[Rfam]
Group II catalytic intron D1-D4-2: a 125-nucleotide RNA sequence from Micromonospora sp. Llam0. About the family: Group II introns are found in rRNA, tRNA and mRNA of organelles in fungi, plants and protists, and also in mRNA in bacteria. A search with the family's covariance model found it, with a score of 96 bits.
RNA sequence: GGAGGUUGUUUGGCCCUCCGGAGCCGGCUUGCGGAAGCAGGCUUCAAACCACCACGAGGGGCGUUGGCUGAAGACCGUCGUCCUGAGCGUCGUUGGAAAAGGCGCGGCAAAUGACUGCGUCAGGU
Numbered sequence: 001g002g003a004g005g006u007u008g009u010u011u012g013g014c015c016c017u018c019c020g021g022a023g024c025c026g027g028c029u030u031g032c033g034g035a036a037g038c039a040g041g042c043u044u045c046a047a048a049c050c051a052c053c054a055c056g057a058g059g060g061g062c063g064u065u066g067g068c069u070g071a072a073g074a075c076c077g078u079c080g081u082c083c084u085g086a087g088c089g090u091c092g093u094u095g096g097a098a099a100a101g102g103c104g105c106g107g108c109a110a111a112u113g114a115c116u117g118c119g120u121c122a123g124g125u
Stems, first nucleotide, its partner, number of pairs: 001019005020045006027038004050124001052096002054093004058084002061081003065077003101121006